Notes
The family of this 76-nucleotide RNA from Clunio marinus is "mir-1000 microRNA precursor family". Taxonomically the source falls in Clunio (Eukaryota, Protostomia, Aparaglossata, Chironomidae). The match comes from Rfam's covariance-model search (69 bits).

RNA sequence: GACGAUUAUAUUGUCCUGUCACAGCAGUAUUGUUUGAGCAUUGCUUUUGCUGCUGUUUCGGGACAUUUGUAUUGUU
Numbered sequence: 001g002a003c004g005a006u007u008a009u010a011u012u013g014u015c016c017u018g019u020c021a022c023a024g025c026a027g028u029a030u031u032g033u034u035u036g037a038g039c040a041u042u043g044c045u046u047u048u049g050c051u052g053c054u055g056u057u058u059c060g061g062g063a064c065a066u067u068u069g070u071a072u073u074g075u076u
Base pairs, nucleotide, nucleotide: 003074004073005072006071012065013064014063015062016061017060018059022055023054024053025052026051027050028049029048